The record is a 60-nucleotide sequence, which matches "GP20-b RNA" in Rfam.
RNA sequence: GGCUAUCUGCAAGCCUAAAAGUGCAGGCGGGGCGGUCACGGCAACGACCUAAAAAGCCUA
Numbered sequence: 001g002g003c004u005a006u007c008u009g010c011a012a013g014c015c016u017a018a019a020a021g022u023g024c025a026g027g028c029g030g031g032g033c034g035g036u037c038a039c040g041g042c043a044a045c046g047a048c049c050u051a052a053a054a055a056g057c058c059u060a
Base pairs, nucleotide, nucleotide: 001015002014003013004012007026008025009024010023011022034049035048036047037046

Rfam's curators put it in the seed alignment. By type it is a cis-regulatory element. The family's consensus secondary structure is taken from published work.